[Rfam]
RNA: Plant signal recognition particle RNA
RNA sequence: GCCGGCUGGAGUCACGUCCAGUUGUCACCCAUGUGGGGGCCAAGCGGAUGAAGGAACAUAUGGCUCUCCGGUCGUGAACGCUUCCGUCGAUAGCGUGUCCUCUUCGAGUCCACAGUCGGCAAGGUCGCUGCCCUGAUGGGUGGCUGACCUGGUUGAUGAUUAGUCCCGCACCGCGUGAGGCAGGAAACUGAGCAGCGAAAAGGGACAGCUGCGGACGGCGAAAGGAUCGCAUGCUUGAGGAGGUGCCACGACCACCCGGGGGGUCCUCUGUGGGACCAACUACCGUUU
Numbered sequence: 001g002c003c004g005g006c007u008g009g010a011g012u013c014a015c016g017u018c019c020a021g022u023u024g025u026c027a028c029c030c031a032u033g034u035g036g037g038g039g040c041c042a043a044g045c046g047g048a049u050g051a052a053g054g055a056a057c058a059u060a061u062g063g064c065u066c067u068c069c070g071g072u073c074g075u076g077a078a079c080g081c082u083u084c085c086g087u088c089g090a091u092a093g094c095g096u097g098u099c100c101u102c103u104u105c106g107a108g109u110c111c112a113c114a115g116u117c118g119g120c121a122a123g124g125u126c127g128c129u130g131c132c133c134u135g136a137u138g139g140g141u142g143g144c145u146g147a148c149c150u151g152g153u154u155g156a157u158g159a160u161u162a163g164u165c166c167c168g169c170a171c172c173g174c175g176u177g178a179g180g181c182a183g184g185a186a187a188c189u190g191a192g193c194a195g196c197g198a199a200a201a202g203g204g205a206c207a208g209c210u211g212c213g214g215a216c217g218g219c220g221a222a223a224g225g226a227u228c229g230c231a232u233g234c235u236u237g238a239g240g241a242g243g244u245g246c247c248a249c250g251a252c253c254a255c256c257c258g259g260g261g262g263g264u265c266c267u268c269u270g271u272g273g274g275a276c277c278a279a280c281u282a283c284c285g286u287u288u
Base pairs, nucleotide, nucleotide: 001040002039003038004023005022006021007020008019009018010017028037029036030035042288043287044286045285046284047283050280053277054276057272058271059270060269062268063267065262066261067260068259070253071252072251073250074249075248076247079245081243082242083241085239092235093234094233095232096231097230098229099225100224103222104221105220106219108216109215110214111213113211114210115209116208117155118154119153120152122150123149124148125147126146127145129143133140134139156161163206164205165204166203167202174197175196176195181190182189183188